A member of the RNA family "RT-2 RNA", 218 nucleotides long.
Rfam classes the family as a small RNA.

RNA sequence: UCAGGUCCGACGUAGUAAGCGGGAAACCGCCGAAAUCAGCACCUUUAUGGAAGGAUGACUCGUACCCUGCCUUUUGGCUAAAACACUCCUUUGAUGUAGUCGCUCGGACGCUGCUUGCAUGGCACGGUUUACGCGGACCGUGUUUCAUGGGCGGUACUACUAUGCAGUUACUUUUACGCGUUCAACACUGUACAAAGGGGACAAUUUUUAAUGACAAG
Numbered sequence: 001u002c003a004g005g006u007c008c009g010a011c012g013u014a015g016u017a018a019g020c021g022g023g024a025a026a027c028c029g030c031c032g033a034a035a036u037c038a039g040c041a042c043c044u045u046u047a048u049g050g051a052a053g054g055a056u057g058a059c060u061c062g063u064a065c066c067c068u069g070c071c072u073u074u075u076g077g078c079u080a081a082a083a084c085a086c087u088c089c090u091u092u093g094a095u096g097u098a099g100u101c102g103c104u105c106g107g108a109c110g111c112u113g114c115u116u117g118c119a120u121g122g123c124a125c126g127g128u129u130u131a132c133g134c135g136g137a138c139c140g141u142g143u144u145u146c147a148u149g150g151g152c153g154g155u156a157c158u159a160c161u162a163u164g165c166a167g168u169u170a171c172u173u174u175u176a177c178g179c180g181u182u183c184a185a186c187a188c189u190g191u192a193c194a195a196a197g198g199g200g201a202c203a204a205u206u207u208u209u210a211a212u213g214a215c216a217a218g
Stems, first nucleotide, its partner, number of pairs: 004043003019030004069078003088198006095192001096160005101153005110118002121144006164191005
Rfam's curators put it in the seed alignment.